[Rfam]
RNA sequence: GCAGUGCCCCGGCUCUGUCGCCGGCAUCCCUCGGGAUGCGGGAGGAAAGUCCGGGCAGCACAAGGCGCUCCACUUCCGAAAAUAGAAGCUAUUGGUGACAGUAGGCGCAGGCAGAAGAGAAUGACCGCCAUCCCCCGCGGAUGGCAAGGGUGAGAAGGUGGUGUAAGAGACCACCGGGCGGCGGGCGACCGUCGUGCCGUGCCGGCUGGAGGCUGCAAGUUCAUGUAAACCAUCGUCAUGUCAGGGUUGCCUGCCCGAGCCACUUCGAGUGGAACGAUGGAGGGUAGAACGCUUGAGGUGCAGGGCGACCUGCAUCGUAGAUAAAUGACAGAGCUCCUUCUCAAGGAGGAUACAGAACCCGGCUUAUCAGGGCGCUGCCUUG
Numbered sequence: 001g002c003a004g005u006g007c008c009c010c011g012g013c014u015c016u017g018u019c020g021c022c023g024g025c026a027u028c029c030c031u032c033g034g035g036a037u038g039c040g041g042g043a044g045g046a047a048a049g050u051c052c053g054g055g056c057a058g059c060a061c062a063a064g065g066c067g068c069u070c071c072a073c074u075u076c077c078g079a080a081a082a083u084a085g086a087a088g089c090u091a092u093u094g095g096u097g098a099c100a101g102u103a104g105g106c107g108c109a110g111g112c113a114g115a116a117g118a119g120a121a122u123g124a125c126c127g128c129c130a131u132c133c134c135c136c137g138c139g140g141a142u143g144g145c146a147a148g149g150g151u152g153a154g155a156a157g158g159u160g161g162u163g164u165a166a167g168a169g170a171c172c173a174c175c176g177g178g179c180g181g182c183g184g185g186c187g188a189c190c191g192u193c194g195u196g197c198c199g200u201g202c203c204g205g206c207u208g209g210a211g212g213c214u215g216c217a218a219g220u221u222c223a224u225g226u227a228a229a230c231c232a233u234c235g236u237c238a239u240g241u242c243a244g245g246g247u248u249g250c251c252u253g254c255c256c257g258a259g260c261c262a263c264u265u266c267g268a269g270u271g272g273a274a275c276g277a278u279g280g281a282g283g284g285u286a287g288a289a290c291g292c293u294u295g296a297g298g299u300g301c302a303g304g305g306c307g308a309c310c311u312g313c314a315u316c317g318u319a320g321a322u323a324a325a326u327g328a329c330a331g332a333g334c335u336c337c338u339u340c341u342c343a344a345g346g347a348g349g350a351u352a353c354a355g356a357a358c359c360c361g362g363c364u365u366a367u368c369a370g371g372g373c374g375c376u377g378c379c380u381u382g
Stems, first nucleotide, its partner, number of pairs: 001378009011367001013333007021042002024039006047365003051362005056215004065266001068211005073088004089104001091102004105206002110203004125149002127145007157175006176197001178195007219290004230280005260272004297316008
Dot-bracket structure: (((((((((.(.(((((((.((.((((((....)))))).))....[[[.[[[[[((((.....[..(((((((((........))))(.((((....)))).)((...((((...........(((((((((.....)))))))..)).......((((((.......))))))(.(((((((....))))))).)..)))).)))))))))))...((((.......(((((.........................((((..]..))))...)))))......))))......((((((((....))))))))..........)))))))........................]]]]]]]].)..)))))))))....
Bacterial RNase P class A: a 382-nucleotide RNA sequence from Prevotella dentalis. The match comes from Rfam's covariance-model search (198 bits). The family's RNA type in Rfam is ribozyme.